[Rfam]
RNA: serC leader
Organism: Phyllobacterium zundukense
RNA sequence: GAGUGGGCCACCUCUCCCCAACGAGAGGCGUGCUAUCUGUAAGGAUAGGAGAA
Numbered sequence: 001g002a003g004u005g006g007g008c009c010a011c012c013u014c015u016c017c018c019c020a021a022c023g024a025g026a027g028g029c030g031u032g033c034u035a036u037c038u039g040u041a042a043g044g045a046u047a048g049g050a051g052a053a
Base pairs, nucleotide, nucleotide: 011028012027013026014025015024016023033048034047035046036045037044038043